[Rfam]
RNA: BsrG
RNA sequence: UACAUUAAGUUUGCUCACUCAAGGGAGUCUUGCUCAUCCCCUAAUGAAAGGGGGUGAUGCUAAUGUCAACAUUCCAGGCAUUAAUGCUAAUGCUUGCAUUUGGGUCGUUUAUAAUUGCCCUGUUGACGUAUAUAAAUAAAAAAUAGACCUCCCUUGAGCUUAGGAACCUUAAAGGGUUAGGUCUACGCAGAUUGAACAUCGAGCAAGCCCUUUGAUGGGCAGCUUUUUGUACAGAGCCGGGGUGUUGGCGCACCCUGG
Numbered sequence: 001u002a003c004a005u006u007a008a009g010u011u012u013g014c015u016c017a018c019u020c021a022a023g024g025g026a027g028u029c030u031u032g033c034u035c036a037u038c039c040c041c042u043a044a045u046g047a048a049a050g051g052g053g054g055u056g057a058u059g060c061u062a063a064u065g066u067c068a069a070c071a072u073u074c075c076a077g078g079c080a081u082u083a084a085u086g087c088u089a090a091u092g093c094u095u096g097c098a099u100u101u102g103g104g105u106c107g108u109u110u111a112u113a114a115u116u117g118c119c120c121u122g123u124u125g126a127c128g129u130a131u132a133u134a135a136a137u138a139a140a141a142a143a144u145a146g147a148c149c150u151c152c153c154u155u156g157a158g159c160u161u162a163g164g165a166a167c168c169u170u171a172a173a174g175g176g177u178u179a180g181g182u183c184u185a186c187g188c189a190g191a192u193u194g195a196a197c198a199u200c201g202a203g204c205a206a207g208c209c210c211u212u213u214g215a216u217g218g219g220c221a222g223c224u225u226u227u228u229g230u231a232c233a234g235a236g237c238c239g240g241g242g243u244g245u246u247g248g249c250g251c252a253c254c255c256u257g258g
Stems, first nucleotide, its partner, number of pairs: 001231004007225003010221001011206006018158008027148004034057003038053005065127007078093003102119002168190002207220004237258009